Rfam assigns this 103-nucleotide RNA from Limnohabitans sp. T6-5 to the family "TPP riboswitch aptamer (THI element)".
Rfam links the family to the GO term thiamine pyrophosphate binding.
Taxonomically the source falls in Limnohabitans (Bacteria, Pseudomonadota, Betaproteobacteria, Burkholderiales).
RNA sequence: UGCAUUCGCUAGGGGUGUUGAAGUCCGUGAGGUCUUCGACUGAGAAAGUCCCUUUGAACCUGAUUGAGGUAAUCCUCGCGCAGGGAAGCUGGCCCCAAUCACG
Numbered sequence: 001u002g003c004a005u006u007c008g009c010u011a012g013g014g015g016u017g018u019u020g021a022a023g024u025c026c027g028u029g030a031g032g033u034c035u036u037c038g039a040c041u042g043a044g045a046a047a048g049u050c051c052c053u054u055u056g057a058a059c060c061u062g063a064u065u066g067a068g069g070u071a072a073u074c075c076u077c078g079c080g081c082a083g084g085g086a087a088g089c090u091g092g093c094c095c096c097a098a099u100c101a102c103g
Stems, first nucleotide, its partner, number of pairs: 006091001008089003011053004016047001017040007059084004065078004